Record summary: Small nucleolar RNA SNORA15: a 134-nucleotide RNA sequence from Emberiza fucata. The literature on the family includes a 2001 paper in EMBO J by Huttenhofer et al., "RNomics: an experimental approach that identifies 201 candidates for novel, small, non-messenger RNAs in mouse". From the family's description: ACA15 is a member of the H/ACA class of snoRNA that guide the sites of modification of uridines to pseudouridines. Its family is annotated with nucleolus and RNA processing in the Gene Ontology.

RNA sequence: GCAUGGAUGAAUUCUGCCCUAGCUUUCCUCAGUAGCUGGUGCAGUCAGACACCAUGCCAGAGCAAAUUCCUUUUUCCCACUGUGCCUGGUGUGCUUUUUGAUGGGAUGAGCAUGCCCUUGGAAGGGGAACACAU
Number, nucleotide and partner (000 for none) at each position: 001g057002c056003a055004u054005g053006g052007a000008u000009g000010a000011a000012u000013u000014c044015u043016g042017c041018c000019c039020u000021a000022g000023c000024u000025u000026u000027c000028c000029u000030c000031a000032g000033u000034a000035g000036c000037u000038g000039g019040u000041g017042c016043a015044g014045u000046c000047a000048g000049a000050c000051a000052c006053c005054a004055u003056g002057c001058c000059a000060g000061a000062g000063c000064a000065a000066a000067u000068u000069c000070c127071u126072u125073u000074u124075u123076c000077c121078c120079a119080c000081u000082g000083u000084g000085c000086c000087u000088g116089g115090u114091g113092u112093g111094c110095u109096u108097u000098u000099u000100g000101a000102u000103g000104g000105g000106a000107u000108g096109a095110g094111c093112a092113u091114g090115c089116c088117c000118u000119u079120g078121g077122a000123a075124g074125g072126g071127g070128a000129a000130c000131a000132c000133a000134u000